RNA sequence: GAAAGUCCAACAGGGGCGACCUGAGAACACAUGAAUAUACGAAUGAACAUUAAUCUUCUUCUUUUUCUUCAUGUGGUCUCAGGACGCCCCUGUAGAACCCCU
Numbered sequence: 001g002a003a004a005g006u007c008c009a010a011c012a013g014g015g016g017c018g019a020c021c022u023g024a025g026a027a028c029a030c031a032u033g034a035a036u037a038u039a040c041g042a043a044u045g046a047a048c049a050u051u052a053a054u055c056u057u058c059u060u061c062u063u064u065u066u067c068u069u070c071a072u073g074u075g076g077u078c079u080c081a082g083g084a085c086g087c088c089c090c091u092g093u094a095g096a097a098c099c100c101c102u
Stems, first nucleotide, its partner, number of pairs: 008095001011092004016087003023080004028075005
Annotation: MIR398 microRNA precursor family: a 102-nucleotide RNA from Senna tora. Taxonomically the source falls in Senna (Eukaryota, Viridiplantae, eudicotyledons, rosids). The base pairs follow the family's consensus structure, which was predicted with WAR. Rfam links the family to the GO terms RISC complex and miRNA-mediated post-transcriptional gene silencing.